[Rfam]
RNA: Bacterial RNase P class A
RNA sequence: AAAGUGAGCCGGGCAAUCGCAAGUGAUCGGUUAAGAUCACUUGAGGAAAGUCCGGGCACCACAGGGCAGGAUGCCAGCUAACGGCUGGUCAGCGCGAGCUGAAGGAAAGUGCCACAGAAACAUAGACCGCCGAUGGUUGCCUGUGGUGGGCAGAUUGCCUCCUCGGCCAACCGCCCAUCCACGGGCUUCACAGGCAAGGGUGGAAGCGUGAGGUAAGAGCUCACGAGGUCAACAGGCAACUGUUGACCUGGUAAACCCCAUCCGGUGCAAGACCAAAUAGGGAGUAGUUGACCAUUGUGUCAACCGCUUUGGCCCGAAGCGUCCCGUGGUUGGUCGCUUGAGCUAUACAGCGAUGUAUAGCCUAGAUAGAUGAUUGCCACUCCAUGGUGUGGGAGGCUGAAGCCGUCAUACCACCAGGAGGACAGAACCCGGCUUACAGGCUCACUUUCAUC
Numbered sequence: 001a002a003a004g005u006g007a008g009c010c011g012g013g014c015a016a017u018c019g020c021a022a023g024u025g026a027u028c029g030g031u032u033a034a035g036a037u038c039a040c041u042u043g044a045g046g047a048a049a050g051u052c053c054g055g056g057c058a059c060c061a062c063a064g065g066g067c068a069g070g071a072u073g074c075c076a077g078c079u080a081a082c083g084g085c086u087g088g089u090c091a092g093c094g095c096g097a098g099c100u101g102a103a104g105g106a107a108a109g110u111g112c113c114a115c116a117g118a119a120a121c122a123u124a125g126a127c128c129g130c131c132g133a134u135g136g137u138u139g140c141c142u143g144u145g146g147u148g149g150g151c152a153g154a155u156u157g158c159c160u161c162c163u164c165g166g167c168c169a170a171c172c173g174c175c176c177a178u179c180c181a182c183g184g185g186c187u188u189c190a191c192a193g194g195c196a197a198g199g200g201u202g203g204a205a206g207c208g209u210g211a212g213g214u215a216a217g218a219g220c221u222c223a224c225g226a227g228g229u230c231a232a233c234a235g236g237c238a239a240c241u242g243u244u245g246a247c248c249u250g251g252u253a254a255a256c257c258c259c260a261u262c263c264g265g266u267g268c269a270a271g272a273c274c275a276a277a278u279a280g281g282g283a284g285u286a287g288u289u290g291a292c293c294a295u296u297g298u299g300u301c302a303a304c305c306g307c308u309u310u311g312g313c314c315c316g317a318a319g320c321g322u323c324c325c326g327u328g329g330u331u332g333g334u335c336g337c338u339u340g341a342g343c344u345a346u347a348c349a350g351c352g353a354u355g356u357a358u359a360g361c362c363u364a365g366a367u368a369g370a371u372g373a374u375u376g377c378c379a380c381u382c383c384a385u386g387g388u389g390u391g392g393g394a395g396g397c398u399g400a401a402g403c404c405g406u407c408a409u410a411c412c413a414c415c416a417g418g419a420g421g422a423c424a425g426a427a428c429c430c431g432g433c434u435u436a437c438a439g440g441c442u443c444a445c446u447u448u449c450a451u452c
Stems, first nucleotide, its partner, number of pairs: 001448010011437001012378007020043009048435003052432005057267004064315004069263005074088005089103001090101004104258002109256002111252003127199002129195003134190003207225006228247008271335004282325001284323001286322001306320005342361008
Dot-bracket structure: ((((((((((((((((((.(((((((((......)))))))))....[[[.[[[[[((((...[[[[.((((((((((.....)))))(((((....)))).)((...(((((.............(((((..(((...................................................)))..)))..)).......((((((.......))))))..((((((((....))))))))..)))..)))))))))))))...((((.......(.(.(...................(((((.]]]]))))).)).)......))))......((((((((....))))))))..........))))))).................................................]]]]]]]].).))))))))))....